[Rfam]
RNA sequence: UGUUGGUCGCCGCCGAGUCGCCCUCGGGCGAGCCGGGGAACCACCGAUCCACUGGGGUGAAUCCGCGCGAGCGGUAGGGAGACUUCCGUCCCGAACCCGUCAGCUAACUCGGUAGGCGGCUGACUGGAAGGAUG
Numbered sequence: 001u002g003u004u005g006g007u008c009g010c011c012g013c014c015g016a017g018u019c020g021c022c023c024u025c026g027g028g029c030g031a032g033c034c035g036g037g038g039a040a041c042c043a044c045c046g047a048u049c050c051a052c053u054g055g056g057g058u059g060a061a062u063c064c065g066c067g068c069g070a071g072c073g074g075u076a077g078g079g080a081g082a083c084u085u086c087c088g089u090c091c092c093g094a095a096c097c098c099g100u101c102a103g104c105u106a107a108c109u110c111g112g113u114a115g116g117c118g119g120c121u122g123a124c125u126g127g128a129a130g131g132a133u134g
Base pairs, nucleotide, nucleotide: 011118012117013116014115018031019030020029032113033112034111035110036109037108042054043053055098056097057096063074064073065072066071077092078091079090080089
RNA: c-di-AMP riboswitch aptamer (ydaO/yuaA leader)
Organism: Phytohabitans suffuscus